This 101-nucleotide RNA from Bacillus sp. FJAT-49711 belongs to the Rfam family "c-di-GMP-I-GGC riboswitch aptamer". A search with the family's covariance model found it, with a score of 66 bits.

RNA sequence: AUUGAAAAAGGCAAACUAUUUGAAAAGAUAGGACGCAAAGCUAAGGGUCUACGGUUUUAUAGGGCAUUAUUCCUAUUACUAUGAUCGCCUGGUUACCAAAU
Dot-bracket structure: (.((......((...((((((....))))))..[))..((((.((((((.................................))).])))))))..))..)